The record is a 119-nucleotide RNA sequence from Manihot esculenta, which matches "MIR408 microRNA precursor family" in Rfam.

[Rfam]
RNA sequence: AGAAAGAGGCUGACAAAGACUGGGAACAGGCAGAGCAUGGAUGGAGCUAUUAAUGGAAAUAUCUGUUUUGGCUCCACCCAUGCACUGCCUCUUCCCUGGCUUGUGGCUCCUCCUUUUCU
Dot-bracket structure: ...............(((.(.(((((.((((((.((((((...((...........................))...)))))).)))))).))))).).))).................
Numbered sequence: 001a002g003a004a005a006g007a008g009g010c011u012g013a014c015a016a017a018g019a020c021u022g023g024g025a026a027c028a029g030g031c032a033g034a035g036c037a038u039g040g041a042u043g044g045a046g047c048u049a050u051u052a053a054u055g056g057a058a059a060u061a062u063c064u065g066u067u068u069u070g071g072c073u074c075c076a077c078c079c080a081u082g083c084a085c086u087g088c089c090u091c092u093u094c095c096c097u098g099g100c101u102u103g104u105g106g107c108u109c110c111u112c113c114u115u116u117u118c119u
Stems, first nucleotide, its partner, number of pairs: 016102003020098001022096005028090006035083006044074002
Rfam links the family to the GO terms miRNA-mediated post-transcriptional gene silencing and RISC complex.
The family has 8 seed sequences and 299 matches in Rfam 15.1.